[Rfam]
RNA sequence: CCGCCCGCGCCUCUUAACAAUGCGAAACUGGGCGGG
Numbered sequence: 001c002c003g004c005c006c007g008c009g010c011c012u013c014u015u016a017a018c019a020a021u022g023c024g025a026a027a028c029u030g031g032g033c034g035g036g
Base pairs, nucleotide, nucleotide: 001035002034003033004032005031006030008024009023010022
The record is a 36-nucleotide sequence from Xylanibacillus composti, which matches "abiF RNA" in Rfam. Rfam describes the family as follows. Actinobacteria, Bacteroidetes, Clostridia, Proteobacteria, one Clostridia phage. The organism belongs to Xylanibacillus, within Bacteria. The base pairs follow the family's consensus structure, which is taken from published work.